Shown here is a 73-nucleotide RNA from Capra hircus, a member of the family "mir-2318 microRNA precursor family".
NCBI's taxonomy places the organism under Eukaryota, Eumetazoa, Chordata, Tetrapoda, Capra.
The sequence is in the family's curated seed alignment.
Rfam links the family to the GO terms RISC complex and miRNA-mediated post-transcriptional gene silencing.
Rfam 15.1 lists 9 matches to the family in 9 species.
The base pairs follow the family's consensus structure, which was predicted with RNAalifold.
RNA sequence: UGUCAGGAACCCCGUGUAUGAUGAAUUAUCUGACCCGGCUAUUGCCUCUCAUAUAAUGCUUCUCGUGGCUCUC
Numbered sequence: 001u002g003u004c005a006g007g008a009a010c011c012c013c014g015u016g017u018a019u020g021a022u023g024a025a026u027u028a029u030c031u032g033a034c035c036c037g038g039c040u041a042u043u044g045c046c047u048c049u050c051a052u053a054u055a056a057u058g059c060u061u062c063u064c065g066u067g068g069c070u071c072u073c
Stems, first nucleotide, its partner, number of pairs: 007073002012068005020062002023059001026056004031051003037046003
Dot-bracket structure: ......((...(((((...((.(..((((.(((...(((....)))..))).))))..).)).)))))...))